[Rfam]
RNA sequence: CCACUCGAUGACGACGAGCUCAUCUCCUACAUCACGGCCGGCCUUGACAUGGAGUAUCAACCCCUCGUCUCCGCCCUCGACGCCCGCACUCAGCCGGUCACCCUUGAUGAAUUGUAUGCUCAGAUGAGCAACUUCGAUC
Numbered sequence: 001c002c003a004c005u006c007g008a009u010g011a012c013g014a015c016g017a018g019c020u021c022a023u024c025u026c027c028u029a030c031a032u033c034a035c036g037g038c039c040g041g042c043c044u045u046g047a048c049a050u051g052g053a054g055u056a057u058c059a060a061c062c063c064c065u066c067g068u069c070u071c072c073g074c075c076c077u078c079g080a081c082g083c084c085c086g087c088a089c090u091c092a093g094c095c096g097g098u099c100a101c102c103c104u105u106g107a108u109g110a111a112u113u114g115u116a117u118g119c120u121c122a123g124a125u126g127a128g129c130a131a132c133u134u135c136g137a138u139c
Stems, first nucleotide, its partner, number of pairs: 005137004088108001090106001092104002